[Rfam]
RNA sequence: AGGCGAAGUGACGCGCCACCGGCCGCACCAGGACGCGGCCACUGAACGGCGGACUACCUCGUCGGGUCCGCCGUUUUUUU
Numbered sequence: 001a002g003g004c005g006a007a008g009u010g011a012c013g014c015g016c017c018a019c020c021g022g023c024c025g026c027a028c029c030a031g032g033a034c035g036c037g038g039c040c041a042c043u044g045a046a047c048g049g050c051g052g053a054c055u056a057c058c059u060c061g062u063c064g065g066g067u068c069c070g071c072c073g074u075u076u077u078u079u080u
Stems, first nucleotide, its partner, number of pairs: 002017004021040006046074010
About this RNA:
The family of this 80-nucleotide sequence from Xanthomonas campestris is "Xanthomonadaceae sRNA Xoo2". Pairs were carried over by alignment from the consensus structure, which was predicted with CMfinder. Rfam classes the family as a small RNA. Rfam's curators put it in the seed alignment. The literature on the family includes a 2011 paper in BMC Genomics by Liang et al., "Identification and functional characterization of small non-coding RNAs in Xanthomonas oryzae pathovar oryzae".